[Rfam]
RNA: MIR159 microRNA precursor family
Organism: Populus trichocarpa
RNA sequence: ACCAUUAAAUAGGAGCUUGCUCACUCCAGAUCUGAAAGGAGGUGAUAGGAAACCACUUCUGCUACUUCAUGAAUACCCGUGGGUGUGCGCGUAGCCAUGGUGAGCUGCGCAGGCUAAGGGUCUGCAUGUGCUAGGAGAUGUGGUUGCCUUGAUCUUUUUGGUCUUGGGGUGAAGGGAGCUCCUAUAGUC
Numbered sequence: 001a002c003c004a005u006u007a008a009a010u011a012g013g014a015g016c017u018u019g020c021u022c023a024c025u026c027c028a029g030a031u032c033u034g035a036a037a038g039g040a041g042g043u044g045a046u047a048g049g050a051a052a053c054c055a056c057u058u059c060u061g062c063u064a065c066u067u068c069a070u071g072a073a074u075a076c077c078c079g080u081g082g083g084u085g086u087g088c089g090c091g092u093a094g095c096c097a098u099g100g101u102g103a104g105c106u107g108c109g110c111a112g113g114c115u116a117a118g119g120g121u122c123u124g125c126a127u128g129u130g131c132u133a134g135g136a137g138a139u140g141u142g143g144u145u146g147c148c149u150u151g152a153u154c155u156u157u158u159u160g161g162u163c164u165u166g167g168g169g170u171g172a173a174g175g176g177a178g179c180u181c182c183u184a185u186a187g188u189c
Stems, first nucleotide, its partner, number of pairs: 013181006020174001022171007035158001059137002062134003068128004076120001